[Rfam]
RNA sequence: GGGCGCUUAGCUCAGUCUGGACAGAGUACUUGGCUUCGGACCAAGCUGCCGCGGGUUCAAAUCCUGCAGCGCCCA
Numbered sequence: 001g002g003g004c005g006c007u008u009a010g011c012u013c014a015g016u017c018u019g020g021a022c023a024g025a026g027u028a029c030u031u032g033g034c035u036u037c038g039g040a041c042c043a044a045g046c047u048g049c050c051g052c053g054g055g056u057u058c059a060a061a062u063c064c065u066g067c068a069g070c071g072c073c074c075a
Base pairs, nucleotide, nucleotide: 001074002073003072004071005070006069007068010027011026012025013024029045030044031043032042033041051067052066053065054064055063